[Rfam]
RNA: PhotoRC-II RNA
RNA sequence: UAACACAUAUCUUGCUCCCGCUAACCAAGACCUAUGGGAGGAUAAAUUACGUCUUUAUAUCCGUAAGUGAGGGAUUUACGGAAAUAUGUUUCGCA
Numbered sequence: 001u002a003a004c005a006c007a008u009a010u011c012u013u014g015c016u017c018c019c020g021c022u023a024a025c026c027a028a029g030a031c032c033u034a035u036g037g038g039a040g041g042a043u044a045a046a047u048u049a050c051g052u053c054u055u056u057a058u059a060u061c062c063g064u065a066a067g068u069g070a071g072g073g074a075u076u077u078a079c080g081g082a083a084a085u086a087u088g089u090u091u092c093g094c095a
Base pairs, nucleotide, nucleotide: 015040016039017038018037019036027055028054029053030052031051060082061081062080063079064078065077066076